[Rfam]
About this RNA
A member of the RNA family "Makes More Granules Regulator RNA (mmgR)" from Rhodoplanes sp., 81 nucleotides long. Rfam describes the family as follows. SuhB later renamed mmgR (makes more granules regulator) was a putative non-coding RNA found multiple times in the Agrobacterium tumefaciens genome and related alpha-proteobacteria. Other non-coding RNAs uncovered in the same analysis include: speF, ybhL, metA, and serC.Several studies inSinorhizobium meliloti showed that suhB element is indeed a non-coding RNA:firstly it was detected on Northern blot and called Sm8RNA, secondly in an RNAseq study referred to as SmelC689.The mutant phenotype's (strain lacking the small RNA) cytoplasm contains higher content of polyhydroxybutyrate (PBH)storage granules than wild type strain. The match comes from Rfam's covariance-model search (59 bits).

RNA sequence: ACGGGGUGCCCUCCAUGGGCGUUUCCUCCCUAGACUUGGCCCCGUCACCCGCCUGGGUGACGGGGCUUUUUUCGCGCCGGG
Numbered sequence: 001a002c003g004g005g006g007u008g009c010c011c012u013c014c015a016u017g018g019g020c021g022u023u024u025c026c027u028c029c030c031u032a033g034a035c036u037u038g039g040c041c042c043c044g045u046c047a048c049c050c051g052c053c054u055g056g057g058u059g060a061c062g063g064g065g066c067u068u069u070u071u072u073c074g075c076g077c078c079g080g081g
Stems, first nucleotide, its partner, number of pairs: 008020004039066011